Shown here is a 90-nucleotide RNA sequence from Mycoplasma testudineum, a member of the family "tRNA".
The literature on the family includes a 1997 paper in Nucleic Acids Res by Lowe and Eddy, "tRNAscan-SE: a program for improved detection of transfer RNA genes in genomic sequence".
The source organism's lineage runs through Bacteria, Bacillati, Mollicutes, Mycoplasmatales and Mycoplasma.
A search with the family's covariance model found it, with a score of 51 bits.
The family's consensus secondary structure is taken from published work.

RNA sequence: GGGCAAUUACCCAAGUCUGGCUGAAGGGAGUAGUCUUGAAAACUACCAGGGGAUGAAAGUCCCGCGGGGGUUCGAAUCCCUCAUUGCCCG
Dot-bracket structure: (((((((..(((.............))).(((((.......)))))...................(((((.......)))))))))))).